[Rfam]
Nucleotides: 114
Base pairs, nucleotide, nucleotide: 004029005028006027007026008025010023011022012021013020033066034065037062038061043059044058045057046056047055048054069103071102072101073100074098076094077093078092
Number, partner (000 for none) and nucleotide at each position: 001000a002000a003000a004029g005028a006027g007026a008025g009000a010023u011022a012021u013020g014000c015000u016000a017000c018000u019000a020013c021012a022011u023010a024000c025008c026007u027006c028005u029004c030000c031000u032000u033066u034065a035000u036000a037062c038061c039000a040000a041000c042000a043059c044058c045057a046056g047055u048054u049000a050000u051000a052000a053000g054048a055047a056046c057045u058044g059043g060000u061038g062037g063000c064000u065034u066033a067000c068000u069103g070000a071102g072101u073100u074098a075000a076094g077093u078092u079000u080000u081000u082000g083000u084000u085000g086000u087000u088000c089000u090000u091000u092078a093077a094076c095000c096000g097000u098074u099000c100073a101072g102071c103069c104000g105000u106000c107000u108000a109000a110000g111000c112000u113000u114000a